RNA sequence: UGGCGGGGGCCCGCACAACCGGUGGAGCGUCUGGUUCAAUUCGAUGCUAACCGAAAAACCUUACCCGGGUUUGACAUGGUGGGAAACCCUUGCGAAAGCGAGGGGUGCCGUCUUCUGGACGGAAUCCCACCACAGGUGGUGCAUGGCCGUCGUCAGCUCGUGUCGUGAGAUGUUGGGUUAAGUCCCGCAACGAGCGCAACCCCUGCCCUUAGUUGCUACUCUUCGGAGGGCACUCUAAGGGGACUGCCGGCGAUAAGCCGGAGGAAGGUGGGGAUGACGUCAGGUCAGUAUGCCCUUUAUGCCCGGGGCUACACAGGCGCUACAGUGGCCGGGACAAUGGGAAGCGACUCAGUAAUGAGGAGCAAAUCCUAUAAACCCGGUCAUGGUGCGGAUUGAGGGCUGAAACUCGCCCUCAUGAAGCCGGAAUCGGUAGUAAUGGCGGAUCAGCUAAGCCGCCGUGAAUACGUUCUCGGGCCUUGCACACACCGCCCGUCACGCCACGGAAGUCAGUCUUCCCGGAAGCCCUCGGGCUAACCCGUAAGGGAGGUAGAGGACGAUGGGAAGGCUGGCAACUGGGGCGAAGUCGUAACAAGG
Dot-bracket structure: (((((.(((((((.((..((((((.((((((((((....((((........))))........(((((((......((.(((((..(((((((....))))))).(.(((((.....))))).)))))).))..((.((((..((((((.((...(((((((((....)))..((((......))))..)))))).....((((.(((((((...((.(((....)))))....)))))))..((.(((((.....))))).)).....))))....)).).)))...))))))))....)))))))...)).)))))))).)...(((((((.....(((..((...(((....)))...))....))).....)))))))......(....(((((((........)))))))....).....))))).....(((((((..........)))))))......))...)))))))))).))..(.(..((...((((.(((..((((((((((((....(.((((..(((..((......)).))).)))).)...))))))))))))..))).))))....))...)..).
Rfam assigns this 594-nucleotide part of an RNA from Hydrogenobacter thermophilus to the family "Bacterial small subunit ribosomal RNA". Lineage of the source: Bacteria > Aquificia > Aquificales > Hydrogenobacter > Hydrogenobacter thermophilus. The literature on the family includes a 2001 paper in Science by Yusupov et al., "Crystal structure of the ribosome at 5.5 A resolution".